Shown here is a 57-nucleotide sequence from Izhakiella capsodis, a member of the family "ClpQY promoter". Its family is annotated with mRNA stabilization in the Gene Ontology. Rfam classes the family as a cis-regulatory element. Pairs were carried over by alignment from the consensus structure.
[Rfam]
RNA sequence: CCCCGCAGCGUAAACUGCGGGGAUUCUUAUUCGAUUGCAUUAAGGGGUCUGCCCGUG
Number, nucleotide and partner (000 for none) at each position: 001c022002c021003c020004c019005g018006c017007a016008g015009c000010g000011u000012a000013a000014a000015c008016u007017g006018c005019g004020g003021g002022g001023a000024u000025u000026c000027u000028u000029a000030u000031u000032c000033g000034a000035u000036u000037g000038c000039a000040u000041u000042a000043a000044g000045g000046g000047g000048u000049c000050u000051g000052c000053c000054c000055g000056u000057g000